MIR529 microRNA precursor family: a 158-nucleotide RNA from Zea mays. The source organism's lineage runs through Eukaryota, Viridiplantae, Streptophytina, Spermatophyta and Zea. Pairs were carried over by alignment from the consensus structure, which was predicted with WAR.
RNA sequence: UCAUCAAGGCUAAAGGGAGAAGAGAGAGAGUACAGCCUUGUUGCCAUGUACACACUCAGAUAUCAACAGUCUCUUAUAUUUGCUGUUACUACCUGUUAUUAGUGUCCAGUGAUGAUGAAGGCUGUACCCUCUCUCUUCUUCUCUUAGCUUCUUGAUGC
Numbered sequence: 001u002c003a004u005c006a007a008g009g010c011u012a013a014a015g016g017g018a019g020a021a022g023a024g025a026g027a028g029a030g031u032a033c034a035g036c037c038u039u040g041u042u043g044c045c046a047u048g049u050a051c052a053c054a055c056u057c058a059g060a061u062a063u064c065a066a067c068a069g070u071c072u073c074u075u076a077u078a079u080u081u082g083c084u085g086u087u088a089c090u091a092c093c094u095g096u097u098a099u100u101a102g103u104g105u106c107c108a109g110u111g112a113u114g115a116u117g118a119a120g121g122c123u124g125u126a127c128c129c130u131c132u133c134u135c136u137u138c139u140u141c142u143c144u145u146a147g148c149u150u151c152u153u154g155a156u157g158c
Stems, first nucleotide, its partner, number of pairs: 005154002009148001012145002015142014030127009
The family has 3 seed sequences and 55 matches in Rfam 15.1. A search with the family's covariance model found it, with a score of 93 bits.